[Rfam]
RNA sequence: CAAUCUUCAAUCGAUGAAAGCCCUACCUCUCAUUCAUCUUUACGGUUCCUUGACCGCGCCAGUGGAAUGAAAAGAGCUAUCUUGGG
Numbered sequence: 001c002a003a004u005c006u007u008c009a010a011u012c013g014a015u016g017a018a019a020g021c022c023c024u025a026c027c028u029c030u031c032a033u034u035c036a037u038c039u040u041u042a043c044g045g046u047u048c049c050u051u052g053a054c055c056g057c058g059c060c061a062g063u064g065g066a067a068u069g070a071a072a073a074g075a076g077c078u079a080u081c082u083u084g085g086g
Stems, first nucleotide, its partner, number of pairs: 034066002039062002041058001043056005
The record is an 86-nucleotide RNA from Halalkalibacter oceani, which matches "BsrC" in Rfam. A search with the family's covariance model found it, with a score of 63 bits. Rfam describes the family as follows. The 301 nucleotide sequence from Kouji Nakamura has been trimmed to a highly conserved ~85 nucleotide long core to form this family. For this family Rfam cites "Novel small RNA-encoding genes in the intergenic regions of Bacillus subtilis" (Saito et al., Gene, 2008). Rfam 15.1 lists 572 matches to the family in 553 species. Lineage of the source: Bacteria > Bacillota > Bacilli > Bacillaceae > Halalkalibacter. By type it is a small RNA. The family's consensus secondary structure was predicted with CMfinder.